A member of the RNA family "c-di-GMP-I riboswitch aptamer" from Bacillus infantis, 88 nucleotides long. The organism belongs to Bacillus infantis, within Bacteria. The match comes from Rfam's covariance-model search (72 bits).

Nucleotides: 088
Base pairs, nucleotide, nucleotide: 012037013036017032018031019030020029021028022027040082041081042080043079047078048077049074050073051072056068057067
Number, partner (000 for none) and nucleotide at each position: 001000g002000a003000a004000u005000a006000u007000c008000a009000a010000g011000g012037g013036c014000a015000a016000a017032a018031u019030c020029a021028c022027u023000g024000a025000a026000a027022a028021g029020u030019g031018a032017u033000g034000a035000c036013g037012c038000a039000a040082a041081g042080c043079u044000a045000u046000a047078g048077g049074g050073g051072c052000u053000u054000a055000u056068g057067u058000g059000g060000a061000a062000a063000a064000a065000a066000a067057a068056c069000a070000a071000u072051g073050c074049c075000a076000g077048c078047c079043a080042g081041c082040u083000g084000c085000c086000a087000u088000c